The record is a 184-nucleotide RNA, which matches "RT-7 RNA" in Rfam. Rfam's curators put it in the seed alignment. The family's consensus secondary structure is taken from published work.

RNA sequence: CCCGGAGUGCCGGCGGGUCAAGGCUCCCGGCAGAGCGGUUCGUAGAUCCAGCAAUCCGCUGGCGGCGUAAGGACGCCCCAGGAAUAUUACCGGCGUGCGGUGCCGUCAGUUAUCCAUUCCAGUCUGUCCCGGGGUCGGGUCGUUGCCCCCCUCCGGGCCAUUCAUCCCAGCGAUUGCUGAGGUU
Numbered sequence: 001c002c003c004g005g006a007g008u009g010c011c012g013g014c015g016g017g018u019c020a021a022g023g024c025u026c027c028c029g030g031c032a033g034a035g036c037g038g039u040u041c042g043u044a045g046a047u048c049c050a051g052c053a054a055u056c057c058g059c060u061g062g063c064g065g066c067g068u069a070a071g072g073a074c075g076c077c078c079c080a081g082g083a084a085u086a087u088u089a090c091c092g093g094c095g096u097g098c099g100g101u102g103c104c105g106u107c108a109g110u111u112a113u114c115c116a117u118u119c120c121a122g123u124c125u126g127u128c129c130c131g132g133g134g135u136c137g138g139g140u141c142g143u144u145g146c147c148c149c150c151c152u153c154c155g156g157g158c159c160a161u162u163c164a165u166c167c168c169a170g171c172g173a174u175u176g177c178u179g180a181g182g183u184u
Stems, first nucleotide, its partner, number of pairs: 001038002008032006016025002050178007058110008074095004081091002125160002128157007137148003